[Rfam]
Shown here is a 116-nucleotide RNA sequence from Anisodus acutangulus, a member of the family "U5 spliceosomal RNA". A reference for the family is Zwieb (1997), "The uRNA database", Nucleic Acids Res. The match comes from Rfam's covariance-model search (65 bits). From the family's description: U5 RNA is a component of both types of known spliceosome. It is annotated as a spliceosomal small nuclear RNA.
RNA sequence: AGCCAUGCAGUAAGCAUAGAGCGAACUAUUCUUUCGCCUUUUAUUAAAGAAUAUCGUGUGCACGCUGCAUUCAGUGUCAUAUGCCUAUUUUUGGAGGGGUUCUCUUUUUAUAGUUU
Numbered sequence: 001a002g003c004c005a006u007g008c009a010g011u012a013a014g015c016a017u018a019g020a021g022c023g024a025a026c027u028a029u030u031c032u033u034u035c036g037c038c039u040u041u042u043a044u045u046a047a048a049g050a051a052u053a054u055c056g057u058g059u060g061c062a063c064g065c066u067g068c069a070u071u072c073a074g075u076g077u078c079a080u081a082u083g084c085c086u087a088u089u090u091u092u093g094g095a096g097g098g099g100u101u102c103u104c105u106u107u108u109u110a111u112a113g114u115u116u
Stems, first nucleotide, its partner, number of pairs: 004076003008067004014061005027053008095116001097115002100112001